[Rfam]
RNA sequence: ACCUCCCAAAUAUAUAUAUAUAUGUACGUAUGUGUAUAUAAAUGUAUACGUAGAUAUAUAUGUAUUUUUGGUGGGUUU
Numbered sequence: 001a002c003c004u005c006c007c008a009a010a011u012a013u014a015u016a017u018a019u020a021u022a023u024g025u026a027c028g029u030a031u032g033u034g035u036a037u038a039u040a041a042a043u044g045u046a047u048a049c050g051u052a053g054a055u056a057u058a059u060a061u062g063u064a065u066u067u068u069u070g071g072u073g074g075g076u077u078u
Base pairs, nucleotide, nucleotide: 001076002075003074004073006071007070008069009068010067012065013064014063015062016061017060018059019058020057021056022055023054025052026051027050028049029048030047031046032045033044034043035042
Dot-bracket structure: ((((.(((((.((((((((((((.(((((((((((......))))))))))).)))))))))))).))))).))))..
mir-1277 microRNA precursor family: a 78-nucleotide RNA from Pongo pygmaeus. Pairs were carried over by alignment from the consensus structure, which was predicted with RNAalifold.